[Rfam]
Nucleotides: 372
Base pairs, nucleotide, nucleotide: 001368002367003366004365005364006363007362008361009360011357012327013326014325015324016323017322018321020039021038023036024035025034026033027032044355045354046353048352049351050350051349052348053219054218055217056216062261063260066215067214068213069212070211071085072084073083074082075081086100087098088097089096090095101210102209106208107207108204109203110202123150124149125146126145127144130143131142132141133140134139158176159175160174161173162172163171177199178197179196180195181194182193183192184191185190223284224283225282226281232275233274234273235272236271237270253268254267255266256265291310292309293308294307295306296305297304298303
Number, partner (000 for none) and nucleotide at each position: 001368g002367c003366a004365g005364a006363u007362g008361g009360c010000u011357g012327g013326a014325u015324g016323g017322c018321c019000g020039c021038c022000g023036c024035u025034a026033c027032c028000u029000c030000a031000g032027g033026g034025u035024a036023g037000g038021g039020g040000a041000g042000g043000a044355a045354a046353g047000u048352c049351c050350g051349g052348g053219c054218u055217c056216c057000a058000c059000a060000g061000a062261a063260a064000c065000a066215c067214g068213g069212u070211g071085c072084c073083g074082g075081u076000u077000a078000a079000u080000g081075g082074c083073c084072g085071g086100c087098g088097a089096g090095g091000g092000c093000g094000a095090c096089c097088u098087c099000a100086g101210g102209g103000a104000a105000a106208g107207u108204g109203c110202c111000a112000c113000a114000g115000a116000a117000a118000g119000c120000a121000a122000a123150c124149c125146g126145c127144c128000u129000a130143u131142g132141c133140c134139c135000g136000a137000a138000u139134g140133g141132g142131c143130a144127g145126g146125u147000a148000a149124g150123g151000a152000u153000g154000a155000a156000a157000g158176g159175g160174u161173g162172c163171g164000g165000u166000a167000a168000g169000a170000g171163c172162g173161c174160a175159c176158c177199g178197c179196g180195g181194u182193c183192c184191u185190g186000g187000u188000a189000a190185c191184a192183g193182g194181a195180c196179u197178g198000g199177c200000a201000g202110g203109g204108u205000a206000a207107a208106c209102c210101c211070c212069a213068c214067c215066g216056g217055g218054a219053g220000c221000a222000a223284g224283a225282c226281c227000a228000a229000u230000a231000g232275g233274g234273a235272u236271g237270g238000u239000u240000g241000c242000c243000u244000u245000a246000a247000g248000u249000g250000g251000c252000a253268g254267g255266c256265g257000g258000g259000u260063u261062u262000c263000u264000g265256c266255g267254c268253c269000a270237c271236c272235g273234u274233c275232c276000g277000g278000g279000u280000c281226g282225g283224u284223u285000g286000c287000u288000u289000g290000a291310g292309c293308g294307g295306c296305a297304u298303g299000g300000c301000a302000a303298c304297a305296u306295g307294u308293c309292g310291c311000c312000u313000a314000g315000a316000g317000g318000a319000a320000u321018g322017g323016u324015c325014a326013u327012c328000a329000c330000c331000a332000g333000u334000u335000u336000a337000c338000u339000g340000g341000u342000a343000c344000a345000g346000a347000a348052c349051c350050c351049g352048g353046c354045u355044u356000a357011c358000a359000c360009g361008c362007c363006a364005u365004c366003u367002g368001c369000c370000a371000c372000u